A member of the RNA family "Small nucleolar RNA SNORD73" from Bos taurus, 69 nucleotides long.
RNA sequence: AAUAAAUGAUGACAAAUGUUUCGGUCCCAUAUGAUGUCUGAUGAUAAAACUUAACAUUUUUCUGAUGUU
Dot-bracket structure: ((((.............................................................))))
The sequence is in the family's curated seed alignment.